The record is a 66-nucleotide sequence from Flavobacterium sp. BFFFF2, which matches "DUF805 RNA" in Rfam. Clan: DUF805 clan. A search with the family's covariance model found it, with a score of 67 bits. The family's RNA type in Rfam is cis-regulatory element. The source organism's lineage runs through Bacteria, Bacteroidota, Flavobacteriales, Flavobacteriaceae and Flavobacterium.

[Rfam]
RNA sequence: ACGGUAUGGAGUUCAGAAACCAUUUUAAACGAGGCGAUUCCGAAAAGCCAAAUGAGUAGGUGAUUU
Numbered sequence: 001a002c003g004g005u006a007u008g009g010a011g012u013u014c015a016g017a018a019a020c021c022a023u024u025u026u027a028a029a030c031g032a033g034g035c036g037a038u039u040c041c042g043a044a045a046a047g048c049c050a051a052a053u054g055a056g057u058a059g060g061u062g063a064u065u066u
Stems, first nucleotide, its partner, number of pairs: 006023004033049003040060002